[Rfam]
RNA: mir-172 microRNA precursor family
Organism: Zingiber officinale
RNA sequence: GUAUUUGCCGAUGCAGCAUCAUCAAGAUUCUCAUGUAUCAAAUAUGUGUAUGUAAUCGCACAAAUCCAUGUGAAUCUUGAUGGUGCUGCUUCCACAAACAC
Numbered sequence: 001g002u003a004u005u006u007g008c009c010g011a012u013g014c015a016g017c018a019u020c021a022u023c024a025a026g027a028u029u030c031u032c033a034u035g036u037a038u039c040a041a042a043u044a045u046g047u048g049u050a051u052g053u054a055a056u057c058g059c060a061c062a063a064a065u066c067c068a069u070g071u072g073a074a075u076c077u078u079g080a081u082g083g084u085g086c087u088g089c090u091u092c093c094a095c096a097a098a099c100a101c
Base pairs, nucleotide, nucleotide: 010092011091013089014088015087016086017085018084019083020082021081022080023079024078025077026076027075028074029073030072032070033069034068035067